t44 RNA: an 88-nucleotide RNA sequence from Shewanella sediminis. This family consists of a number of bacterial RNA genes of between 135 and 170 bases in length. The organism belongs to Shewanella sediminis, within Bacteria. It scores 79 bits against the family's covariance model. On this family, see Tjaden et al., Nucleic Acids Res 2002: "Transcriptome analysis of Escherichia coli using high-density oligonucleotide probe arrays".
RNA sequence: AUUUAUUAAAUACUAAAUCACACACGUUUCGACACAUUCUUCGGGGUGCCUACAUAGGUCGAAGAUAUGGGAAGCGUGGAGGUCUAAC
Numbered sequence: 001a002u003u004u005a006u007u008a009a010a011u012a013c014u015a016a017a018u019c020a021c022a023c024a025c026g027u028u029u030c031g032a033c034a035c036a037u038u039c040u041u042c043g044g045g046g047u048g049c050c051u052a053c054a055u056a057g058g059u060c061g062a063a064g065a066u067a068u069g070g071g072a073a074g075c076g077u078g079g080a081g082g083u084c085u086a087a088c
Stems, first nucleotide, its partner, number of pairs: 023078008035069003040063004048059004